[Rfam]
RNA sequence: UUGCGCGCCGUGGAAAGCCGACGCGGCGGAAGGAAGGACGCGGGAAUUUUGCCGUUUCUUUCCGGUGGGCAACGAAAUGGCAGCCGAGCUUUCGACCCGUCCGGCUC
Numbered sequence: 001u002u003g004c005g006c007g008c009c010g011u012g013g014a015a016a017g018c019c020g021a022c023g024c025g026g027c028g029g030a031a032g033g034a035a036g037g038a039c040g041c042g043g044g045a046a047u048u049u050u051g052c053c054g055u056u057u058c059u060u061u062c063c064g065g066u067g068g069g070c071a072a073c074g075a076a077a078u079g080g081c082a083g084c085c086g087a088g089c090u091u092u093c094g095a096c097c098c099g100u101c102c103g104g105c106u107c
Stems, first nucleotide, its partner, number of pairs: 007105003011023002025101003028097002033092004039067003043063003068081001070079001
A member of the RNA family "Rhizobiales sRNA Atu_At1" from Rhizobium sp. BK251, 107 nucleotides long. On this family, see Wilms et al., RNA Biol 2012: "Deep sequencing uncovers numerous small RNAs on all four replicons of the plant pathogen Agrobacterium tumefaciens".